[Rfam]
A member of the RNA family "C. elegans snoRNA ceN100" from Caenorhabditis brenneri, 133 nucleotides long. The base pairs follow the family's consensus structure, which was predicted with RNAalifold. Lineage of the source: Eukaryota > Metazoa > Rhabditina > Peloderinae > Caenorhabditis. The family has 4 seed sequences and 23 matches in Rfam 15.1.

RNA sequence: GUACGAGGUCCAGAGUCACCUUUUUGAUUAACAUGUCACUUUGGUGCUAGGAUUGCUCGAAAAUAAAUUUGGUCGUAUUAUGCAAGUAGGGCUUGCUUCUGCGCUCCCCUCCUUCACCUCAUUCCCAAACAAA
Numbered sequence: 001g002u003a004c005g006a007g008g009u010c011c012a013g014a015g016u017c018a019c020c021u022u023u024u025u026g027a028u029u030a031a032c033a034u035g036u037c038a039c040u041u042u043g044g045u046g047c048u049a050g051g052a053u054u055g056c057u058c059g060a061a062a063a064u065a066a067a068u069u070u071g072g073u074c075g076u077a078u079u080a081u082g083c084a085a086g087u088a089g090g091g092c093u094u095g096c097u098u099c100u101g102c103g104c105u106c107c108c109c110u111c112c113u114u115c116a117c118c119u120c121a122u123u124c125c126c127a128a129a130c131a132a133a
Stems, first nucleotide, its partner, number of pairs: 004059004008053004014048002017046004025038001027036002070127003075122002081116002084114003089109003095104002